Shown here is a 109-nucleotide sequence from Yersinia ruckeri, a member of the family "Yersinia sRNA 224". The match comes from Rfam's covariance-model search (74 bits). The pairing is the family consensus, mapped onto this sequence.
[Rfam]
RNA sequence: GAGGCUCAUAACCAAUGUGCUCGGCCGCGGUGAAAACCGGCAGGUCGUCAAGACGCCGUGAAUACGUCCUUGUCGGCUCGUUCCGCGCUAUCCUUGGCGCGGACGCUCG
Numbered sequence: 001g002a003g004g005c006u007c008a009u010a011a012c013c014a015a016u017g018u019g020c021u022c023g024g025c026c027g028c029g030g031u032g033a034a035a036a037c038c039g040g041c042a043g044g045u046c047g048u049c050a051a052g053a054c055g056c057c058g059u060g061a062a063u064a065c066g067u068c069c070u071u072g073u074c075g076g077c078u079c080g081u082u083c084c085g086c087g088c089u090a091u092c093c094u095u096g097g098c099g100c101g102g103a104c105g106c107u108c109g
Base pairs, nucleotide, nucleotide: 013109015107017106018105019104021030022029023028032079033078043068044067045066047065048064053059054058083102084101085100086099087098088097089096090095

Lineage of the source: Bacteria > Gammaproteobacteria > Enterobacterales > Yersiniaceae > Yersinia. Gene Ontology term of the family: response to temperature stimulus. By type it is a small RNA.